A member of the RNA family "Small nucleolar RNA R38" from Gouania willdenowi, 73 nucleotides long.

[Rfam]
RNA sequence: CAGUAGUAAUGAUGAGUUUGUUAUCCCUGUCUGAAUAUAAUCUGUGUGGAAACCAAAGGUAUCUGACUUACUA
Numbered sequence: 001c002a003g004u005a006g007u008a009a010u011g012a013u014g015a016g017u018u019u020g021u022u023a024u025c026c027c028u029g030u031c032u033g034a035a036u037a038u039a040a041u042c043u044g045u046g047u048g049g050a051a052a053c054c055a056a057a058g059g060u061a062u063c064u065g066a067c068u069u070a071c072u073a
Stems, first nucleotide, its partner, number of pairs: 002072005

About the family: snoR38 is a C/D box small nucleolar RNA conserved across yeast, human, Arabidopsis and rice. It is encoded in the intron of elongation factor-1 gamma in both pombe and cerevisiae. snoR38 guides the methylation of 2'-O-ribose sites in 28S rRNA.
The family's RNA type in Rfam is C/D-box small nucleolar RNA.
For this family Rfam cites "Antisense snoRNAs: a family of nucleolar RNAs with long complementarities to rRNA" (Bachellerie et al., Trends Biochem Sci, 1995).
Taxonomically the source falls in Gouania (Eukaryota, Craniata, Ctenosquamata, Gobiesocidae).
The base pairs follow the family's consensus structure, which was predicted with PFOLD.